[Rfam]
Shown here is a 57-nucleotide RNA sequence from Actinidia chinensis, a member of the family "Plastid-ccsA-ndhD-1 3UTR RNA". About the family: Plastid-ccsA-ndhD-1 is a non-coding RNA (ncRNA) recognised in plastids. The family's consensus secondary structure was predicted with LocARNA.
RNA sequence: AAGUUGGCAAGAAACAUUUGAAUCAAGUAGUGUAAUGAUUAACAUGGUUCUGACAAA
Numbered sequence: 001a002a003g004u005u006g007g008c009a010a011g012a013a014a015c016a017u018u019u020g021a022a023u024c025a026a027g028u029a030g031u032g033u034a035a036u037g038a039u040u041a042a043c044a045u046g047g048u049u050c051u052g053a054c055a056a057a
Stems, first nucleotide, its partner, number of pairs: 007054001010051004015046003019042001021040005